[Rfam]
RNA sequence: GACACGCGACUGGCGCGGUCAAGGUGGGCUCGACCACCGGGGAGCGAACCGAGUCCGGACACCGCGCGCCUGGGUGACCGGC
Number, nucleotide and partner (000 for none) at each position: 001g050002a000003c000004a000005c046006g045007c044008g000009a000010c041011u040012g070013g069014c068015g067016c066017g000018g000019u000020c000021a000022a000023g000024g037025u036026g035027g034028g000029c000030u000031c000032g000033a000034c027035c026036a025037c024038c000039g000040g011041g010042g000043a000044g007045c006046g005047a000048a000049c000050c001051g000052a000053g000054u000055c000056c000057g000058g000059a000060c076061a075062c074063c073064g000065c000066g016067c015068g014069c013070c012071u000072g000073g063074g062075u061076g060077a000078c000079c000080g000081g000082c000
Shown here is an 82-nucleotide sequence from Actinomadura macrotermitis, a member of the family "ZMP/ZTP riboswitch aptamer (pfl RNA motif)". A search with the family's covariance model found it, with a score of 40 bits. The family has 185 seed sequences and 3,295 matches in Rfam 15.1. The organism belongs to Actinomadura, within Bacteria.